Rfam assigns this 86-nucleotide RNA sequence from Anaerosolibacter carboniphilus to the family "c-di-GMP-I riboswitch aptamer". The organism belongs to Anaerosolibacter, within Bacteria.
[Rfam]
RNA sequence: ACAUGAUAAAGGCAAACUUAUCGAAAGAUAAGGACGCAAAGCUAUGGGUCUAAGGUUGACGAAACGAUGAUUGCCAAGCUGCCAUU
Numbered sequence: 001a002c003a004u005g006a007u008a009a010a011g012g013c014a015a016a017c018u019u020a021u022c023g024a025a026a027g028a029u030a031a032g033g034a035c036g037c038a039a040a041g042c043u044a045u046g047g048g049u050c051u052a053a054g055g056u057u058g059a060c061g062a063a064a065c066g067a068u069g070a071u072u073g074c075c076a077a078g079c080u081g082c083c084a085u086u
Stems, first nucleotide, its partner, number of pairs: 012037002017032006040080004045076003048071003055065003
The match comes from Rfam's covariance-model search (84 bits).